The record is an 87-nucleotide sequence from Acer yangbiense, which matches "mir-156 microRNA precursor family" in Rfam. The family has 10 seed sequences and 1,401 matches in Rfam 15.1.
RNA sequence: GUGACAGAAGAGAGUGAGCACACAGGGUGUUUUCUUGCAUGCUUGGUUCAUGCUUGAAGCUUUGUGUGCUUACUCUCUCUCUGUCAC
Numbered sequence: 001g002u003g004a005c006a007g008a009a010g011a012g013a014g015u016g017a018g019c020a021c022a023c024a025g026g027g028u029g030u031u032u033u034c035u036u037g038c039a040u041g042c043u044u045g046g047u048u049c050a051u052g053c054u055u056g057a058a059g060c061u062u063u064g065u066g067u068g069c070u071u072a073c074u075c076u077c078u079c080u081c082u083g084u085c086a087c
Stems, first nucleotide, its partner, number of pairs: 001087008010077012023064003
From the family's description: This family represents the plant microRNA (miRNA) precursor mir-156. Rfam links the family to the GO terms miRNA-mediated post-transcriptional gene silencing and RISC complex. The base pairs follow the family's consensus structure, which was predicted with PFOLD. Lineage of the source: Eukaryota > eudicotyledons > rosids > Hippocastanoideae > Acer.